Rfam assigns this 97-nucleotide part of an RNA from Halalkaliarchaeum desulfuricum to the family "Archaeal large subunit ribosomal RNA".
The match comes from Rfam's covariance-model search (2717 bits).
[Rfam]
RNA sequence: GACGUGGCACGAAAGGCCGAUCGAGAAACGACCGAGGGGCGAUCCUCCAGUAGGAAUCGAUCGGAGCCGGUGUUGCGUCGUACGUUUUGAAAAACGA
Numbered sequence: 001g002a003c004g005u006g007g008c009a010c011g012a013a014a015g016g017c018c019g020a021u022c023g024a025g026a027a028a029c030g031a032c033c034g035a036g037g038g039g040c041g042a043u044c045c046u047c048c049a050g051u052a053g054g055a056a057u058c059g060a061u062c063g064g065a066g067c068c069g070g071u072g073u074u075g076c077g078u079c080g081u082a083c084g085u086u087u088u089g090a091a092a093a094a095c096g097a
Base pairs, nucleotide, nucleotide: 001079002078003077004076005075006074007073008072009071010070015068016067019062020061021060022059023058024057029053034047035046036045037044038043083096084095085094